[Rfam]
RNA sequence: AUUCAUUCAUGGGCUGGGAUUUGUUGCAAUACUUGUGUUAUAUUAAAAGUAUUGCACUUGUCCCGGCCUGUGAAAGAAAG
Numbered sequence: 001a002u003u004c005a006u007u008c009a010u011g012g013g014c015u016g017g018g019a020u021u022u023g024u025u026g027c028a029a030u031a032c033u034u035g036u037g038u039u040a041u042a043u044u045a046a047a048a049g050u051a052u053u054g055c056a057c058u059u060g061u062c063c064c065g066g067c068c069u070g071u072g073a074a075a076g077a078a079a080g
Stems, first nucleotide, its partner, number of pairs: 004076001006074001009071006016064005023057002026055009

Shown here is an 80-nucleotide RNA sequence from Nannospalax galili, a member of the family "mir-92 microRNA precursor family".
It scores 91 bits against the family's covariance model.
On this family, see Houbaviy et al., Dev Cell 2003: "Embryonic stem cell-specific MicroRNAs".
Rfam's curators write: This family represents the microRNA precursor mir-92. Human miR-92 has two predicted hairpin precursor sequences: mir-92-1 on chromosome 13 and mir-92-2 on chromosome X. miR-92 has also been cloned from mouse embryonic stem cells. The mature sequence is excised from the 3' arm of the hairpin.